[Rfam]
RNA sequence: ACCGCGUACUUGCCUACUAUAUAAUAGCCGAAAUACAUGUAUUUGACCUACUAUAUAGUAGGUAAGUACACGGUUG
Numbered sequence: 001a002c003c004g005c006g007u008a009c010u011u012g013c014c015u016a017c018u019a020u021a022u023a024a025u026a027g028c029c030g031a032a033a034u035a036c037a038u039g040u041a042u043u044u045g046a047c048c049u050a051c052u053a054u055a056u057a058g059u060a061g062g063u064a065a066g067u068a069c070a071c072g073g074u075u076g
Base pairs, nucleotide, nucleotide: 001074002073003072004071006069007068008067009066010065011064012063013062014061015060017058018057019056020055021054022053023052025050026049027048031044033042034041035040

Overview
The family of this 76-nucleotide sequence from Ameiurus melas is "mir-7563 microRNA precursor family". Gene Ontology terms of the family: miRNA-mediated post-transcriptional gene silencing and RISC complex. It scores 80 bits against the family's covariance model. Taxonomically the source falls in Ameiurus (Eukaryota, Actinopterygii, Otomorpha, Characiphysae).